Rfam assigns this 99-nucleotide RNA sequence from Anaeromassilibacillus sp. An172 to the family "Purine riboswitch aptamer". Rfam's curators write: Riboswitches are metabolite binding domains within certain messenger RNAs that serve as precision sensors for their corresponding targets. Its family is annotated with purine nucleobase biosynthetic process in the Gene Ontology.

RNA sequence: UGUUAAAAUUUAAAAAAAAUGCGUAUAUUUCAGCAUAAUGGGCUGUAAGUUUCUACCCUUUAUCCGUAAUAAAGGACUACGCAGGAAUAACGGCAGACG
Numbered sequence: 001u002g003u004u005a006a007a008a009u010u011u012a013a014a015a016a017a018a019a020u021g022c023g024u025a026u027a028u029u030u031c032a033g034c035a036u037a038a039u040g041g042g043c044u045g046u047a048a049g050u051u052u053c054u055a056c057c058c059u060u061u062a063u064c065c066g067u068a069a070u071a072a073a074g075g076a077c078u079a080c081g082c083a084g085g086a087a088u089a090a091c092g093g094c095a096g097a098c099g
Base pairs, nucleotide, nucleotide: 020083021082022081023080024079025078029047031045032044033043034042057075058074059073060072061071062070063069